[Rfam]
RNA sequence: AAUUGAUGGUGGGGACACUUCAAAAGCAGGUCAGAAAAACAUUCCCAUGCCUCAUGGAAUUCUUCAUUGGGUUUUUGUUGAAAGUUUAAAAUAAAGUUUCUAAUCU
Numbered sequence: 001a002a003u004u005g006a007u008g009g010u011g012g013g014g015a016c017a018c019u020u021c022a023a024a025a026g027c028a029g030g031u032c033a034g035a036a037a038a039a040c041a042u043u044c045c046c047a048u049g050c051c052u053c054a055u056g057g058a059a060u061u062c063u064u065c066a067u068u069g070g071g072u073u074u075u076u077g078u079u080g081a082a083a084g085u086u087u088a089a090a091a092u093a094a095a096g097u098u099u100c101u102a103a104u105c106u
Stems, first nucleotide, its partner, number of pairs: 001106001004103001006101001057074002060071001
Shown here is a 106-nucleotide RNA from Aquilegia coerulea, a member of the family "Plant small nucleolar RNA R71".
Its family is annotated with nucleolus and RNA processing in the Gene Ontology.
Pairs were carried over by alignment from the consensus structure, which was predicted with PFOLD.
NCBI's taxonomy places the organism under Eukaryota, Tracheophyta, Magnoliopsida, Ranunculales, Aquilegia.
The family's RNA type in Rfam is C/D-box small nucleolar RNA.
The family has 25 seed sequences and 278,378 matches in Rfam 15.1.